[Rfam]
RNA sequence: UAAAUGAAUACAUUUGUACCGAAGACAGCAGGUGCUGAUCCCAGCUUAAACAGCCUGCCGAGGGAAUGCGAUAGAAUUAGCCCAUAAAACGGCUUGUUGUAUUAUGCCUCCAUGUCCUUCGGAUAUGGAGGCUUUUAUUUGCCCGG
Number, nucleotide and partner (000 for none) at each position: 001u000002a000003a000004a000005u000006g000007a000008a000009u000010a000011c000012a000013u000014u000015u000016g000017u000018a000019c000020c000021g000022a000023a000024g000025a000026c000027a000028g058029c057030a056031g055032g054033u053034g045035c044036u043037g000038a000039u000040c000041c000042c000043a036044g035045c034046u000047u000048a000049a000050a000051c000052a000053g033054c032055c031056u030057g029058c028059c000060g000061a000062g000063g000064g000065a000066a000067u000068g000069c000070g000071a000072u000073a000074g000075a000076a000077u000078u000079a000080g000081c000082c000083c000084a000085u000086a000087a000088a000089a000090c000091g000092g000093c000094u000095u000096g000097u000098u000099g000100u000101a000102u000103u000104a000105u000106g000107c131108c130109u129110c128111c127112a126113u125114g124115u123116c122117c000118u000119u000120c000121g000122g116123a115124u114125a113126u112127g111128g110129a109130g108131g107132c000133u000134u000135u000136u000137a000138u000139u000140u000141g000142c000143c000144c000145g000146g000
The family of this 146-nucleotide RNA sequence from Neobacillus piezotolerans is "Ribosomal protein L10 leader". This family is a putative r-protein leader autoregulatory structure found in B. subtilis and other low-GC Gram-positive bacteria. The family's RNA type in Rfam is cis-regulatory leader. A reference for the family is Zengel and Lindahl (1994), "Diverse mechanisms for regulating ribosomal protein synthesis in Escherichia coli", Prog Nucleic Acid Res Mol Biol. It scores 78 bits against the family's covariance model.